[Rfam]
About this RNA: The record is a 129-nucleotide RNA sequence, which matches "Enterococcus sRNA 68 (Lacto-3 RNA)" in Rfam. It is annotated as a small RNA. A reference for the family is Innocenti et al. (2015), "Whole-genome mapping of 5' RNA ends in bacteria by tagged sequencing: a comprehensive view in Enterococcus faecalis", RNA. It is one of the family's seed sequences. Pairs were carried over by alignment from the consensus structure, which is taken from published work.
RNA sequence: UGCGAUGAGUCGAGAAGAAUCAGACAACAUUUUGUUGUUUCGCUGCGGCGACUAGUGAUUAUUUUCAUUAAGGCAGAGUACAGAUGUUACCGGAUUGUAACGUACUUGCUUGAUGUAGAUGUGAACUGC
Numbered sequence: 001u002g003c004g005a006u007g008a009g010u011c012g013a014g015a016a017g018a019a020u021c022a023g024a025c026a027a028c029a030u031u032u033u034g035u036u037g038u039u040u041c042g043c044u045g046c047g048g049c050g051a052c053u054a055g056u057g058a059u060u061a062u063u064u065u066c067a068u069u070a071a072g073g074c075a076g077a078g079u080a081c082a083g084a085u086g087u088u089a090c091c092g093g094a095u096u097g098u099a100a101c102g103u104a105c106u107u108g109c110u111u112g113a114u115g116u117a118g119a120u121g122u123g124a125a126c127u128g129c
Stems, first nucleotide, its partner, number of pairs: 018060005023039006040051004077106005086101005115129004120125001